[Rfam]
RNA sequence: GUUAGAGAUUGGGUCUUUGUGGGCAAGGUGAGUCCUAUACAGUCUCUCAACUGGCCUUCAAAGUCCCAGUUUUUGAC
Numbered sequence: 001g002u003u004a005g006a007g008a009u010u011g012g013g014u015c016u017u018u019g020u021g022g023g024c025a026a027g028g029u030g031a032g033u034c035c036u037a038u039a040c041a042g043u044c045u046c047u048c049a050a051c052u053g054g055c056c057u058u059c060a061a062a063g064u065c066c067c068a069g070u071u072u073u074u075g076a077c
Stems, first nucleotide, its partner, number of pairs: 003075006010068004015063005021057004026052002029049002
mir-193 microRNA precursor family: a 77-nucleotide RNA from Synaphobranchus kaupii.
The match comes from Rfam's covariance-model search (64 bits).
Pairs were carried over by alignment from the consensus structure, which was predicted with RNAalifold.